[Rfam]
Source information:
This 109-nucleotide RNA sequence from Cobetia sp. UCD-24C belongs to the Rfam family "Guanidine-I riboswitch aptamer". Gene Ontology term of the family: regulation of gene expression.

RNA sequence: CCAAUGGAGCGCUAGGGUUCCGGUGACUGGCUGAUAGCCGUCACGACUGGUCCGAGAGCACUCGACCUCCAAGCUGGGGGUUACACGGCGGGACAAAAGCCCGGGAGAC
Numbered sequence: 001c002c003a004a005u006g007g008a009g010c011g012c013u014a015g016g017g018u019u020c021c022g023g024u025g026a027c028u029g030g031c032u033g034a035u036a037g038c039c040g041u042c043a044c045g046a047c048u049g050g051u052c053c054g055a056g057a058g059c060a061c062u063c064g065a066c067c068u069c070c071a072a073g074c075u076g077g078g079g080g081u082u083a084c085a086c087g088g089c090g091g092g093a094c095a096a097a098a099g100c101c102c103g104g105g106a107g108a109c
Stems, first nucleotide, its partner, number of pairs: 007063003011059002015053002020050002022047001023044005064082008084104001086107001090102003
A reference for the family is Barrick et al. (2004), "New RNA motifs suggest an expanded scope for riboswitches in bacterial genetic control", Proc Natl Acad Sci U S A. Rfam's curators write: This family represents a conserved RNA structure found upstream of the ykkC and yxkD genes in Bacillus subtilis and related genes in other bacteria.